[Rfam]
RNA sequence: UGACGUCGGUUCCUCUUCCUGUCUGCAGUGAAUCAGGAGGAUUUUACGACGUCGCAGAGAAACUCGGGUCUUUUUCACCCAGGAAGCUUCCGGCUGCAGCCGAAACUAAAUCAGCUUCCUGGUUUUGCGGGACCCAAUAAAA
Number, nucleotide and partner (000 for none) at each position: 001u054002g053003a052004c051005g050006u049007c048008g047009g000010u000011u000012c000013c000014u041015c040016u039017u038018c037019c000020u035021g034022u000023c000024u000025g000026c000027a000028g000029u000030g000031a000032a000033u000034c021035a020036g000037g018038a017039g016040g015041a014042u000043u000044u000045u000046a000047c008048g007049a006050c005051g004052u003053c002054g001055c000056a000057g000058a000059g000060a000061a000062a000063c000064u000065c000066g000067g134068g133069u132070c131071u130072u129073u000074u000075u000076c000077a000078c000079c122080c121081a120082g119083g118084a117085a116086g115087c114088u113089u000090c000091c000092g000093g000094c000095u000096g000097c000098a000099g000100c000101c000102g000103a000104a000105a000106c000107u000108a000109a000110a000111u000112c000113a088114g087115c086116u085117u084118c083119c082120u081121g080122g079123u000124u000125u000126u000127g000128c000129g072130g071131g070132a069133c068134c067135c000136a000137a000138u000139a000140a000141a000142a000